Rfam assigns this 104-nucleotide RNA from Lathyrus oleraceus to the family "MIR4414 microRNA precursor family". The family has 2 seed sequences and 12 matches in Rfam 15.1. Rfam links the family to the GO terms miRNA-mediated post-transcriptional gene silencing and RISC complex. It scores 103 bits against the family's covariance model.
RNA sequence: GCUGAGACACAGCUGCUGACUCGUUGGUUCAACAGCUCACAACAUAUUAUAUGGUGUCAAUGUGUGUGCUUUUGAUCCAACGAAGCGGGAGCUGCAUUCAGUCG
Dot-bracket structure: ((((((...(((((.(((..(((((((.(((..(((.(((.((..................))))).)))..))).)))))))..))).)))))..))))))..